[Rfam]
Rfam assigns this 71-nucleotide sequence from Roseovarius halotolerans to the family "tRNA". It scores 63 bits against the family's covariance model. The organism belongs to Roseovarius, within Bacteria. From the family's description: Transfer RNA (tRNA) molecules are approximately 80 nucleotides in length. Their secondary structure includes four short double-helical elements and three loops (D, anti-codon, and T loops). Further hydrogen bonds mediate the characteristic L-shaped molecular structure. tRNAs have two regions of fundamental functional importance: the anti-codon, which is responsible for specific mRNA codon recognition, and the 3' end, to which the tRNAs corresponding amino acid is attached (by aminoacyl-tRNA synthetases). tRNAs cope with the degeneracy of the genetic code in two manners: having more than one tRNA (with a specific anti-codon) for a particular amino acid; and 'wobble' base-pairing, i.e. permitting non-standard base-pairing at the 3rd anti-codon position. The family's RNA type in Rfam is transfer RNA. The base pairs follow the family's consensus structure, which is taken from published work. Gene Ontology term of the family: triplet codon-amino acid adaptor activity.
Nucleotides: 071
Stems, first nucleotide, its partner, number of pairs: 001070007010024004027041004047063005
Number, partner (000 for none) and nucleotide at each position: 001070g002069c003068g004067g005066g006065u007064a008000u009000g010024g011023u012022g013021a014000a015000a016000a017000g018000g019000u020000a021013u022012c023011a024010c025000g026000c027041g028040a029039g030038c031000u032000u033000c034000c035000c036000a037000a038030g039029c040028u041027u042000a043000a044000g045000u046000u047063g048062c049061g050060g051059g052000u053000u054000c055000g056000a057000u058000u059051c060050c061049c062048g063047c064007u065006a066005c067004c068003c069002g070001c071000u